This 147-nucleotide sequence from Shinella sp. WSJ-2 belongs to the Rfam family "FMN riboswitch aptamer (RFN element)". The source organism's lineage runs through Bacteria, Pseudomonadati, Alphaproteobacteria, Rhizobiaceae and Shinella. The family's consensus secondary structure is taken from published work. Gene Ontology term of the family: FMN binding. About the family: The RFN element is a highly conserved domain that is found frequently in the 5'-untranslated regions of prokaryotic mRNAs that encode for flavin mononucleotide (FMN) biosynthesis and transport proteins.
RNA sequence: CAUCGUUCUCAGGGCGGGGCGAAAAUCCCCACCGGCGGUAUCCGGAGCGAUCCGGGAGCCCGCAAGCGCCUUUCGCGAAUGGAAGGGUCAGCAGAUCCGGUGCGAUGCCGGGGCCGACGGUUACAGUCCGGAUGGAAGAGAGCAAGC
Numbered sequence: 001c002a003u004c005g006u007u008c009u010c011a012g013g014g015c016g017g018g019g020c021g022a023a024a025a026u027c028c029c030c031a032c033c034g035g036c037g038g039u040a041u042c043c044g045g046a047g048c049g050a051u052c053c054g055g056g057a058g059c060c061c062g063c064a065a066g067c068g069c070c071u072u073u074c075g076c077g078a079a080u081g082g083a084a085g086g087g088u089c090a091g092c093a094g095a096u097c098c099g100g101u102g103c104g105a106u107g108c109c110g111g112g113g114c115c116g117a118c119g120g121u122u123a124c125a126g127u128c129c130g131g132a133u134g135g136a137a138g139a140g141a142g143c144a145a146g147c
Stems, first nucleotide, its partner, number of pairs: 003145001005143006017029003031127002033116002035063004058114002066092002096112005118130003